[Rfam]
RNA sequence: AAAAAGGCAAACCGCGGGUUUGCGUGCCAACGUUUGACUGUCCGUCUUAUAUGAAAUUUUUUUAUAAUUAGUAUUUUCAUUGUUGUUAGAUGAUAAAACAUGAUGAAUACUUUAUGCGUGACUUAUCUUUUUAAUUUUUUUCAUAAUUUUUUCAAAUAAGAUGGACGGUCAAACAUUGGACACGGAAACCAGGGUUUGUCUUUUU
Dot-bracket structure: ..........................((((..((((((((((((((((((.........................................................................................................))))))))))))))))))..))))..........................
A member of the RNA family "MIR812 microRNA precursor family" from Oryza nivara, 205 nucleotides long.
It scores 152 bits against the family's covariance model.
Gene Ontology terms of the family: miRNA-mediated post-transcriptional gene silencing and RISC complex.
The source organism's lineage runs through Eukaryota, Streptophytina, Tracheophyta, Magnoliopsida and Oryza.